[Rfam]
RNA sequence: GCCCCUCGCAGAGCUAACACCAGUGAGUGCCGGAGAUAAGCGCCGGAAGGGGUAAAAAAU
Numbered sequence: 001g002c003c004c005c006u007c008g009c010a011g012a013g014c015u016a017a018c019a020c021c022a023g024u025g026a027g028u029g030c031c032g033g034a035g036a037u038a039a040g041c042g043c044c045g046g047a048a049g050g051g052g053u054a055a056a057a058a059a060u
Base pairs, nucleotide, nucleotide: 002052003051004050005049013028014027015026030046031045032044033043035041